DUF3800-I RNA: a 111-nucleotide RNA from Mycoplasma phage sp.
RNA sequence: UUAUUAUGCAGGUAUGUUUACGCUGUAUACUCGUGUUAUUGAACCAAUGUUUAAGCGAACUGUAAGCUCGCCAACCACGGGGCCAUCUUAAAUUAGAUGGUUUUUUUAUUU
Number, nucleotide and partner (000 for none) at each position: 001u000002u000003a000004u000005u000006a000007u027008g026009c025010a024011g023012g021013u020014a019015u000016g000017u000018u000019u014020a013021c012022g000023c011024u010025g009026u008027a007028u000029a000030c081031u080032c079033g078034u077035g076036u000037u000038a000039u074040u073041g072042a051043a050044c049045c000046a000047a000048u000049g044050u043051u042052u000053a000054a000055g071056c070057g069058a068059a000060c066061u000062g000063u000064a000065a000066g060067c000068u058069c057070g056071c055072c041073a040074a039075c000076c035077a034078c033079g032080g031081g030082g101083c100084c099085a098086u097087c096088u095089u000090a000091a000092a000093u000094u000095a088096g087097a086098u085099g084100g083101u082102u000103u000104u000105u000106u000107u000108a000109u000110u000111u000
It scores 96 bits against the family's covariance model.